[Rfam]
RNA sequence: ACAGGAAAAUGACCUAUGAAUUAACAGACAGUAUACUUAAGUUUGUCUGUCAUUUGUGUAGGCCAAUAUUCUGU
Numbered sequence: 001a002c003a004g005g006a007a008a009a010u011g012a013c014c015u016a017u018g019a020a021u022u023a024a025c026a027g028a029c030a031g032u033a034u035a036c037u038u039a040a041g042u043u044u045g046u047c048u049g050u051c052a053u054u055u056g057u058g059u060a061g062g063c064c065a066a067u068a069u070u071c072u073g074u
Stems, first nucleotide, its partner, number of pairs: 001074006008067001010065002013062004019055002022052001024050008
Dot-bracket structure: ((((((.(.((.((((..((.(.((((((((...........)))))))).).))...)))).)).).))))))
Source information
This 74-nucleotide RNA sequence from Phascolarctos cinereus belongs to the Rfam family "mir-192/215 microRNA precursor family". A search with the family's covariance model found it, with a score of 72 bits. Rfam links the family to the GO terms RISC complex and miRNA-mediated post-transcriptional gene silencing. NCBI's taxonomy places the organism under Eukaryota, Opisthokonta, Sarcopterygii, Tetrapoda, Phascolarctos. About the family: This family represents the human microRNA (miRNA) precursors mir-192 and mir-215. Animal miRNAs are transcribed as ~70nt precursors and subsequently processed by the Dicer enzyme to give a ~22nt product. In this case the mature sequence comes from the 5' arm of the precursor. The extents of the hairpin precursors are not generally known and are estimated based on hairpin prediction. The base pairs follow the family's consensus structure, which was predicted with PFOLD.